[Rfam]
RNA sequence: CCUUCUAUCUUGGCAUUCCUGUGUUGACUCUGUACGCAUUGGAUGUAUGAAUGAAGGGAAAUCAAAUUGAUGCUGACCAGCCUUCGGUGCCGGGGUUUGACAGUACCCCACUGCCAUCCUCUAACAGCAUUACAUAA
Dot-bracket structure: (((((........(((((..((((.........))))...))))).......))))).............(((((................(((((........)))))...............)))))........
RNA: Small nucleolar RNA SNORA57